Shown here is a 76-nucleotide sequence from Sphingomonas sp. KC8, a member of the family "Makes More Granules Regulator RNA (mmgR)". It scores 49 bits against the family's covariance model.
[Rfam]
RNA sequence: GGAUCGGGCCUUUCAGGCAUCCUCUCCUAAGACUUUCGGGUCGGUCCUCCGGGAUCGGCCCGUUUUUUUGUCUAUC
Numbered sequence: 001g002g003a004u005c006g007g008g009c010c011u012u013u014c015a016g017g018c019a020u021c022c023u024c025u026c027c028u029a030a031g032a033c034u035u036u037c038g039g040g041u042c043g044g045u046c047c048u049c050c051g052g053g054a055u056c057g058g059c060c061c062g063u064u065u066u067u068u069u070g071u072c073u074a075u076c
Base pairs, nucleotide, nucleotide: 008018009017010016011015038061039060040059041058042057043056044055045054046053
By type it is a small RNA.